[Rfam]
The record is a 170-nucleotide RNA sequence, which matches "c-di-AMP riboswitch aptamer (ydaO/yuaA leader)" in Rfam. This family represents a conserved RNA structure found upstream of the ydaO and yuaA genes in Bacillus subtilis and related genes in other bacteria. Pairs were carried over by alignment from the consensus structure. Rfam links the family to the GO terms cyclic-di-AMP binding and regulation of gene expression.
RNA sequence: GCGCUGGCAGCGCAGAACGCACCACGGCAGGAGCGGGGGAACCACAGGUAAGUCGCCCCGGACCGGUCCUCGUACCGGUUCAGGGCUAGGGGUGAAGCCGCGUCCACAGCGCGGCCGGGCAACUCCAGCCCGAAUCCGACAGCUCACCUCGCAGGCGUGGGAGAGGACCG
Numbered sequence: 001g002c003g004c005u006g007g008c009a010g011c012g013c014a015g016a017a018c019g020c021a022c023c024a025c026g027g028c029a030g031g032a033g034c035g036g037g038g039g040a041a042c043c044a045c046a047g048g049u050a051a052g053u054c055g056c057c058c059c060g061g062a063c064c065g066g067u068c069c070u071c072g073u074a075c076c077g078g079u080u081c082a083g084g085g086c087u088a089g090g091g092g093u094g095a096a097g098c099c100g101c102g103u104c105c106a107c108a109g110c111g112c113g114g115c116c117g118g119g120c121a122a123c124u125c126c127a128g129c130c131c132g133a134a135u136c137c138g139a140c141a142g143c144u145c146a147c148c149u150c151g152c153a154g155g156c157g158u159g160g161g162a163g164a165g166g167a168c169c170g
Stems, first nucleotide, its partner, number of pairs: 002157004011030001033152006043089001090137003098114004117131004